[Rfam]
RNA sequence: GUUUCCGUGUCCAUCCUUGUUAAAACAAGAAAUUUUACGGAAUAACCCAUUUUGCCCGACCGAUCAUCCACGCAGCAAUGGCGUAAGACGUAUUGAUCUUUCAGGCAGUUAGCGGGCUGCGGGUUGCAGUCCUUACCGGUAGAUGGAAAUAUUUCUGGAGAGUAAUACCCAGUCUGUUUCUUUGAUAAUUGCGCUGUUUUUCCGCAUGAAAAACGGGCAACCGACACUCUGCGCCUCUUUGAGCUGACGAUAACCGUGAGGUUGGCGACGCGACUAGACACGAGGCCAUCGGUUCACACCCGGAAAGGCGUUACUUUGCCCACAGCUUAGUCGUCAA
Numbered sequence: 001g002u003u004u005c006c007g008u009g010u011c012c013a014u015c016c017u018u019g020u021u022a023a024a025a026c027a028a029g030a031a032a033u034u035u036u037a038c039g040g041a042a043u044a045a046c047c048c049a050u051u052u053u054g055c056c057c058g059a060c061c062g063a064u065c066a067u068c069c070a071c072g073c074a075g076c077a078a079u080g081g082c083g084u085a086a087g088a089c090g091u092a093u094u095g096a097u098c099u100u101u102c103a104g105g106c107a108g109u110u111a112g113c114g115g116g117c118u119g120c121g122g123g124u125u126g127c128a129g130u131c132c133u134u135a136c137c138g139g140u141a142g143a144u145g146g147a148a149a150u151a152u153u154u155c156u157g158g159a160g161a162g163u164a165a166u167a168c169c170c171a172g173u174c175u176g177u178u179u180c181u182u183u184g185a186u187a188a189u190u191g192c193g194c195u196g197u198u199u200u201u202c203c204g205c206a207u208g209a210a211a212a213a214c215g216g217g218c219a220a221c222c223g224a225c226a227c228u229c230u231g232c233g234c235c236u237c238u239u240u241g242a243g244c245u246g247a248c249g250a251u252a253a254c255c256g257u258g259a260g261g262u263u264g265g266c267g268a269c270g271c272g273a274c275u276a277g278a279c280a281c282g283a284g285g286c287c288a289u290c291g292g293u294u295c296a297c298a299c300c301c302g303g304a305a306a307g308g309c310g311u312u313a314c315u316u317u318g319c320c321c322a323c324a325g326c327u328u329a330g331u332c333g334u335c336a337a
Base pairs, nucleotide, nucleotide: 003042004041005040006039007038008037016029017028018027019026020025052108053107054106055105056104058102059101063097064096065095066094070091071090072089075082076081114328115327116326117325118324119323121321122320123319124318133306134305136303137302138301139300145181146180147179148178149177155172156171157170158169190219191218192217194216195215196214197213199211200210201209202208220293221292222291223290224289233286234285235284236283237282248267249266251264252263253262254261255260
Dot-bracket structure: ..((((((.......(((((....))))).......)))))).........(((((.((...((((...(((..((....))......)))..))))...)).))))).....((((((.((((........((.((((.....(((((.....((((..........))))....)))))........(((.((((.((((.....)))).)))))))(((((........(((((..........((.(((((....))))).))..............)))))..)))))......)))).))...........)))).)))))).........

RNase E 5' UTR element: a 337-nucleotide RNA sequence from Shigella dysenteriae. By type it is a cis-regulatory element. NCBI's taxonomy places the organism under Bacteria, Gammaproteobacteria, Enterobacterales, Shigella, Shigella dysenteriae. On this family, see Diwa et al., Genes Dev 2000: "An evolutionarily conserved RNA stem-loop functions as a sensor that directs feedback regulation of RNase E gene expression". About the family: This family represents a conserved element found in the 5' UTR of RNase E mRNA. RNase E is a key regulatory enzyme in the pathway of mRNA degradation in E. coli that is able to auto-regulate the degradation of its own mRNA in response to changes in RNase E activity. This rne 5' UTR element acts as a sensor of cellular RNase E concentration enabling tight regulation of RNase E concentration and synthesis. A search with the family's covariance model found it, with a score of 254 bits. The base pairs follow the family's consensus structure, which is taken from published work.